[Rfam]
RNA sequence: UUGCAAGUGGUGUUCAUAGCUUAUAUGAAGCCAAGGAGCAUAUGGGAUGCGCAAUACCAGUGUUCCCGCCAUUUGCUU
Dot-bracket structure: ..((((((((((((((((.....)))))).....((((....(((...........)))...))))))))))))))..
The record is a 78-nucleotide sequence, which matches "S6-S18-Chlorobi ribosomal protein leader" in Rfam. A reference for the family is Eckert and Weinberg (2020), "Discovery of 20 novel ribosomal leader candidates in bacteria and archaea", BMC Microbiol. Pairs were carried over by alignment from the consensus structure, which is taken from published work.